[Rfam]
RNA sequence: UUUCCGACAAGGUUAACCCAUCUGAAAAGUGGGGACGCAAAGUCACAGGUCUACGGUCUUUGACCACGACGGCUGGACUGCCGAA
Dot-bracket structure: ...........((...((((.((....))))))...))..((((.((((((....(((...)))...)))..)))))))......
Numbered sequence: 001u002u003u004c005c006g007a008c009a010a011g012g013u014u015a016a017c018c019c020a021u022c023u024g025a026a027a028a029g030u031g032g033g034g035a036c037g038c039a040a041a042g043u044c045a046c047a048g049g050u051c052u053a054c055g056g057u058c059u060u061u062g063a064c065c066a067c068g069a070c071g072g073c074u075g076g077a078c079u080g081c082c083g084a085a
Stems, first nucleotide, its partner, number of pairs: 012038002017033004022029002041079004046075003049070003056064003

The record is an 85-nucleotide sequence from Alicyclobacillaceae bacterium I2511, which matches "c-di-GMP-I riboswitch aptamer" in Rfam. The source organism's lineage runs through Bacteria, Bacillati, Bacillota, Bacilli and Alicyclobacillaceae. Gene Ontology term of the family: cyclic-di-GMP binding.